Shown here is a 132-nucleotide RNA sequence from Populus trichocarpa, a member of the family "MIR480 microRNA precursor family". Rfam's curators put it in the seed alignment. Taxonomically the source falls in Populus (Eukaryota, Embryophyta, Magnoliopsida, fabids). Its family is annotated with RISC complex and miRNA-mediated post-transcriptional gene silencing in the Gene Ontology.

RNA sequence: UAAUUUGUUUAGGGCAAAUCCUCAUUUAGUUAUGAUAAACUUAUAUCUGCUUGCUUAAAAUCACAUGUUAUCGCAAGCCCGGCUAUAUCAUUGACAUUGAAAAAUAAAGGACAACUACUGUGUGAACAAUAA
Numbered sequence: 001u002a003a004u005u006u007g008u009u010u011a012g013g014g015c016a017a018a019u020c021c022u023c024a025u026u027u028a029g030u031u032a033u034g035a036u037a038a039a040c041u042u043a044u045a046u047c048u049g050c051u052u053g054c055u056u057a058a059a060a061u062c063a064c065a066u067g068u069u070a071u072c073g074c075a076a077g078c079c080c081g082g083c084u085a086u087a088u089c090a091u092u093g094a095c096a097u098u099g100a101a102a103a104a105u106a107a108a109g110g111a112c113a114a115c116u117a118c119u120g121u122g123u124g125a126a127c128a129a130u131a132a
Stems, first nucleotide, its partner, number of pairs: 005129005012123001014121002018119001025117001027114001029112003